[Rfam]
RNA sequence: AUGAAUAAUUGGCAAACCUUCUUAAAGGAAGGGACGCAAAGCCAUGGGUCUAAAGAUGUAAUAAUCUAUGAUAGCCAGGUUGCAAUA
Dot-bracket structure: ...........((...((((((....))))))...))..((((.((((((....(((......)))...)))..)))))))......
Numbered sequence: 001a002u003g004a005a006u007a008a009u010u011g012g013c014a015a016a017c018c019u020u021c022u023u024a025a026a027g028g029a030a031g032g033g034a035c036g037c038a039a040a041g042c043c044a045u046g047g048g049u050c051u052a053a054a055g056a057u058g059u060a061a062u063a064a065u066c067u068a069u070g071a072u073a074g075c076c077a078g079g080u081u082g083c084a085a086u087a
Stems, first nucleotide, its partner, number of pairs: 012037002017032006040081004045077003048072003055066003
Shown here is an 87-nucleotide RNA from Sporomusa silvacetica, a member of the family "c-di-GMP-I riboswitch aptamer". GEMM was predicted in a large-scale screen for bacterial structured RNA regulatory elements. Genes associated with GEMM are involved in a diverse array of functions, including chemotaxis regulation, signal transduction, secretion and chitin. For this family Rfam cites "Identification of 22 candidate structured RNAs in bacteria using the CMfinder comparative genomics pipeline" (Weinberg et al., Nucleic Acids Res, 2007).